[Rfam]
RNA sequence: AGUUGCACAUUCAAGGCCAGAGCAGAGUGCUCCUGGCAUGGCCUUGUCAGAUGCCGAUGAAUCUGUGAUUUCUGCU
Numbered sequence: 001a002g003u004u005g006c007a008c009a010u011u012c013a014a015g016g017c018c019a020g021a022g023c024a025g026a027g028u029g030c031u032c033c034u035g036g037c038a039u040g041g042c043c044u045u046g047u048c049a050g051a052u053g054c055c056g057a058u059g060a061a062u063c064u065g066u067g068a069u070u071u072c073u074g075c076u
Base pairs, nucleotide, nucleotide: 014044015043016042017041018040021076022075023074024073025072026070027039028038029037048065049064050063051062052061054059